[Rfam]
RNA sequence: ACUUUUAUGGUAGCGCCUGAACUGCUAAGAGCAGUUGACGAGGUGGAGGAUAAUCGAAAGCGUCGGCGGAUGCCUCCCAGUGCUGGCCUGUGCUGUAAGCAAUGACCGAAAACCAUAGGGCGACCUAUGACACAAGGGCAUUACAAGGCUGGAA
Numbered sequence: 001a002c003u004u005u006u007a008u009g010g011u012a013g014c015g016c017c018u019g020a021a022c023u024g025c026u027a028a029g030a031g032c033a034g035u036u037g038a039c040g041a042g043g044u045g046g047a048g049g050a051u052a053a054u055c056g057a058a059a060g061c062g063u064c065g066g067c068g069g070a071u072g073c074c075u076c077c078c079a080g081u082g083c084u085g086g087c088c089u090g091u092g093c094u095g096u097a098a099g100c101a102a103u104g105a106c107c108g109a110a111a112a113c114c115a116u117a118g119g120g121c122g123a124c125c126u127a128u129g130a131c132a133c134a135a136g137g138g139c140a141u142u143a144c145a146a147g148g149c150u151g152g153a154a
Stems, first nucleotide, its partner, number of pairs: 020036007045077005054066004078095006099144001101142004114129006